[Rfam]
RNA: MIR162_1 microRNA precursor family
RNA sequence: GGUGAAGUCACUGGAGGCAGCGGUUCAUCGACCUCUUCCUGAGAUUUGGUGUGGAAAAAUUACACAAAACAUGAAUCGGUCGAUAAACCUCUGCAUCCAGCGCUUGCUCA
Numbered sequence: 001g002g003u004g005a006a007g008u009c010a011c012u013g014g015a016g017g018c019a020g021c022g023g024u025u026c027a028u029c030g031a032c033c034u035c036u037u038c039c040u041g042a043g044a045u046u047u048g049g050u051g052u053g054g055a056a057a058a059a060u061u062a063c064a065c066a067a068a069a070c071a072u073g074a075a076u077c078g079g080u081c082g083a084u085a086a087a088c089c090u091c092u093g094c095a096u097c098c099a100g101c102g103c104u105u106g107c108u109c110a
Stems, first nucleotide, its partner, number of pairs: 013098003018093003022089004027084007036075003